[Rfam]
RNA sequence: AAUCGCGGUAGAGGUGCGGAAUAAAUCAGUACGACUUGUUGGGGUGAUGCCAAUGAGCAAGUCAGAAAGGUUACGCCGCCGAAGUGAGUAUCUUCAUCAAAAGUAUUCGCUGGGGUUAGACUCGAAUAGGGCUAACACUGCCAUAGUCUAUAAUUUGUAAAACUAUGGAGCGCUACUGUAGGG
Numbered sequence: 001a002a003u004c005g006c007g008g009u010a011g012a013g014g015u016g017c018g019g020a021a022u023a024a025a026u027c028a029g030u031a032c033g034a035c036u037u038g039u040u041g042g043g044g045u046g047a048u049g050c051c052a053a054u055g056a057g058c059a060a061g062u063c064a065g066a067a068a069g070g071u072u073a074c075g076c077c078g079c080c081g082a083a084g085u086g087a088g089u090a091u092c093u094u095c096a097u098c099a100a101a102a103g104u105a106u107u108c109g110c111u112g113g114g115g116u117u118a119g120a121c122u123c124g125a126a127u128a129g130g131g132c133u134a135a136c137a138c139u140g141c142c143a144u145a146g147u148c149u150a151u152a153a154u155u156u157g158u159a160a161a162a163c164u165a166u167g168g169a170g171c172g173c174u175a176c177u178g179u180a181g182g183g
Base pairs, nucleotide, nucleotide: 006178007177008176009175010174011173016079017078018077019076022073023072024071033063034062035061036060037059038058039057083111084110085109086108087107088106089105090104091103093101094100112139113138115136116135117134118133119132121130122129141168142167143166144165145164146163147162